[Rfam]
This 69-nucleotide RNA sequence from Xenopus laevis belongs to the Rfam family "mir-29 microRNA precursor family". This family represents the microRNA (miRNA) precursors mir-29. Gene Ontology terms of the family: gene silencing by miRNA and RISC complex. Lineage of the source: Eukaryota > Deuterostomia > Sarcopterygii > Dipnotetrapodomorpha > Xenopus. It scores 61 bits against the family's covariance model.

RNA sequence: GGAUGACCGAUCUCUCUUGGUGUUUAGAGGCUUGGGUCUUCAUCUAGCACCAUUUGAAAUCGGUUAUUA
Numbered sequence: 001g002g003a004u005g006a007c008c009g010a011u012c013u014c015u016c017u018u019g020g021u022g023u024u025u026a027g028a029g030g031c032u033u034g035g036g037u038c039u040u041c042a043u044c045u046a047g048c049a050c051c052a053u054u055u056g057a058a059a060u061c062g063g064u065u066a067u068u069a
Base pairs, nucleotide, nucleotide: 002068003067004066005064007063008062009061010060011059013057014056018052019051020050021049022048025046026045027044028043